[Rfam]
RNA sequence: GACAGCGUGGCCGAGCGGUCCAAGGCGCCAGACUCAAGCGAGAGCUUCCUGCGGUAGCGGGCUGAGCAUUCUGGUCAGUGUAUACUGGCGUGGGUUCGAAUCCCACCGCUGUCA
Numbered sequence: 001g002a003c004a005g006c007g008u009g010g011c012c013g014a015g016c017g018g019u020c021c022a023a024g025g026c027g028c029c030a031g032a033c034u035c036a037a038g039c040g041a042g043a044g045c046u047u048c049c050u051g052c053g054g055u056a057g058c059g060g061g062c063u064g065a066g067c068a069u070u071c072u073g074g075u076c077a078g079u080g081u082a083u084a085c086u087g088g089c090g091u092g093g094g095u096u097c098g099a100a101u102c103c104c105a106c107c108g109c110u111g112u113c114a
Stems, first nucleotide, its partner, number of pairs: 001113007010026003028074005090106005
RNA: tRNA